[Rfam]
RNA sequence: AGCCUAUGAUGAGUCUUUAUAUUUCUGACAUCUCCAAUGAAAGUGUUGCAUUAAAGCAAUACUUGAUUACACUUUUUGUGCCUGAGGCUC
Numbered sequence: 001a002g003c004c005u006a007u008g009a010u011g012a013g014u015c016u017u018u019a020u021a022u023u024u025c026u027g028a029c030a031u032c033u034c035c036a037a038u039g040a041a042a043g044u045g046u047u048g049c050a051u052u053a054a055a056g057c058a059a060u061a062c063u064u065g066a067u068u069a070c071a072c073u074u075u076u077u078g079u080g081c082c083u084g085a086g087g088c089u090c
Stems, first nucleotide, its partner, number of pairs: 001089004043062001046059004
The family of this 90-nucleotide sequence from Scyliorhinus torazame is "Small nucleolar RNA SNORD60". The source organism's lineage runs through Eukaryota, Opisthokonta, Metazoa, Galeoidea and Scyliorhinus. A search with the family's covariance model found it, with a score of 51 bits. Rfam classes the family as a C/D-box small nucleolar RNA. Its Rfam clan is "SNORD60 clan". Pairs were carried over by alignment from the consensus structure, which was predicted with PFOLD.